[Rfam]
RNA sequence: CGACGCACGGACGCAUCGAUCCUCGGGCGCCAGACCAACGGUUGCCCGCCGCGCCAGCAGGGGCACGCCCCAGCGGCGCGACGGCCCGAGGGGAGCGAGUGGCGAGACCGGCCGUGGCCUUG
Number, nucleotide and partner (000 for none) at each position: 001c122002g121003a120004c000005g118006c116007a115008c114009g113010g112011a000012c097013g096014c095015a000016u000017c000018g000019a000020u000021c091022c090023u089024c088025g087026g086027g085028c084029g000030c000031c000032a000033g000034a000035c000036c000037a000038a000039c000040g109041g108042u105043u104044g103045c102046c101047c000048g000049c000050c000051g000052c000053g000054c000055c000056a000057g000058c000059a000060g000061g000062g000063g000064c000065a000066c000067g000068c000069c000070c000071c000072a000073g000074c000075g000076g000077c000078g000079c000080g000081a000082c000083g000084g028085c027086c026087c025088g024089a023090g022091g021092g000093g000094a000095g014096c013097g012098a000099g000100u000101g046102g045103c044104g043105a042106g000107a000108c041109c040110g000111g000112c010113c009114g008115u007116g006117g000118c005119c000120u003121u002122g001

This 122-nucleotide RNA belongs to the Rfam family "c-di-GMP-II-GAG riboswitch aptamer". Its family is annotated with regulation of gene expression and cyclic-di-GMP binding in the Gene Ontology. Its Rfam clan is "c-di-GMP_II riboswitch clan". It is one of the family's seed sequences.